[Rfam]
RNA sequence: CGCUAUACUAACCCUGAAAUUGCCGGCCCAACGCCUUCGGGCCGGUUUUCAAUGUGU
Number, nucleotide and partner (000 for none) at each position: 001c000002g012003c000004u010005a009006u000007a000008c000009u005010a004011a000012c002013c000014c000015u051016g050017a049018a048019a000020u000021u000022g046023c045024c044025g043026g042027c041028c040029c039030a000031a000032c000033g000034c000035c000036u000037u000038c000039g029040g028041g027042c026043c025044g024045g023046u022047u000048u018049u017050c016051a015052a000053u000054g000055u000056g000057u000
RNA: Enterobacterial sRNA STnc450
Organism: Kluyvera genomosp. 3